[Rfam]
RNA sequence: GGUGGACAGUGAUGAUUACAAACUUACCUACAUUGUCUGAACCUCGUGUUGAGAACUUCUAUUGUUCCUGAGACCACC
Numbered sequence: 001g002g003u004g005g006a007c008a009g010u011g012a013u014g015a016u017u018a019c020a021a022a023c024u025u026a027c028c029u030a031c032a033u034u035g036u037c038u039g040a041a042c043c044u045c046g047u048g049u050u051g052a053g054a055a056c057u058u059c060u061a062u063u064g065u066u067c068c069u070g071a072g073a074c075c076a077c078c
Base pairs, nucleotide, nucleotide: 001078002077004075005074007072
Rfam assigns this 78-nucleotide RNA sequence from Ceratodon purpureus to the family "Small nucleolar RNA SNORD34". Rfam classes the family as a C/D-box small nucleolar RNA. For this family Rfam cites "Purified box C/D snoRNPs are able to reproduce site-specific 2'-O-methylation of target RNA in vitro" (Galardi et al., Mol Cell Biol, 2002). From the family's description: snoRNA U34 is found in intron 5 of the ribosomal protein L13a gene in humans. Lineage of the source: Eukaryota > Viridiplantae > Bryophyta > Ditrichaceae > Ceratodon.